[Rfam]
RNA sequence: UGUCUCCUCCAACUUCUCAAGAAUUGGAUUCAGCCCGCUUCCGUAAGGAGGUGGGCUUUUUUUU
Numbered sequence: 001u002g003u004c005u006c007c008u009c010c011a012a013c014u015u016c017u018c019a020a021g022a023a024u025u026g027g028a029u030u031c032a033g034c035c036c037g038c039u040u041c042c043g044u045a046a047g048g049a050g051g052u053g054g055g056c057u058u059u060u061u062u063u064u
Stems, first nucleotide, its partner, number of pairs: 008028005013021001032057008
Dot-bracket structure: .......((((((.......)..)))))...((((((((..........)))))))).......
Rfam assigns this 64-nucleotide sequence from Herminiimonas fonticola to the family "Betaproteobacteria toxic small RNA". Rfam 15.1 lists 951 matches to the family in 508 species. The base pairs follow the family's consensus structure, which was predicted with WAR. Overexpression in amino aid rich medium attenuates growth, suggesting role in repressing amino acid intake and metabolism. NCBI's taxonomy places the organism under Bacteria, Pseudomonadati, Pseudomonadota, Oxalobacteraceae, Herminiimonas. It scores 56 bits against the family's covariance model.